Small nucleolar RNA SNORA84: a 135-nucleotide sequence from Todus mexicanus. NCBI's taxonomy places the organism under Eukaryota, Eumetazoa, Dipnotetrapodomorpha, Telluraves, Todus. The family's RNA type in Rfam is H/ACA-box small nucleolar RNA. A search with the family's covariance model found it, with a score of 98 bits.
[Rfam]
RNA sequence: GCCCUGUGGUUACUGGACACUGGUUGGUGCGUACAGUGCUUCAGUUGGUAGCGUGGGGGCAAAAGUGAUGCUGUGAAUUACGCGUGGAGUCUGUGAUACGUGAGCAGCUUCCACAGCCCGGUCACAGUUACAGGC
Dot-bracket structure: ((((..((.(.((((((.((((...........))))..)))))).).))......))))..........(.((((.(...((((((.(.((((.........)))).).)))).))..).)))).)........